Description:
Rfam assigns this 141-nucleotide RNA from Callithrix jacchus to the family "U4 spliceosomal RNA". Rfam's curators write: U4 small nuclear RNA (U4 snRNA) is a component of the major U2-dependent spliceosome. Its Rfam clan is "U4 clan". For this family Rfam cites "The spliceosomal snRNAs of Caenorhabditis elegans" (Thomas et al., Nucleic Acids Res, 1990). Rfam classes the family as a spliceosomal small nuclear RNA.
[Rfam]
RNA sequence: AGCUUUGUGCAGUGGCAGUAUCAUAGCCAAUGAGGUUUAUCCGAGGCGCGAUUAUUGCUAAUUGAAAACUUUUCCCAAAACCCUGCCAUGACGACUUGAAAUAUAGUCAGUGUUGGCAAUAUUUGGCAGUCUCUAUGGAGA
Numbered sequence: 001a002g003c004u005u006u007g008u009g010c011a012g013u014g015g016c017a018g019u020a021u022c023a024u025a026g027c028c029a030a031u032g033a034g035g036u037u038u039a040u041c042c043g044a045g046g047c048g049c050g051a052u053u054a055u056u057g058c059u060a061a062u063u064g065a066a067a068a069c070u071u072u073u074c075c076c077a078a079a080a081c082c083c084u085g086c087c088a089u090g091a092c093g094a095c096u097u098g099a100a101a102u103a104u105a106g107u108c109a110g111u112g113u114u115g116g117c118a119a120u121a122u123u124u125g126g127c128a129g130u131c132u133c134u135a136u137g138g139a140g141a
Stems, first nucleotide, its partner, number of pairs: 020052003024048001026047003034042002085117003088113003093108004130141004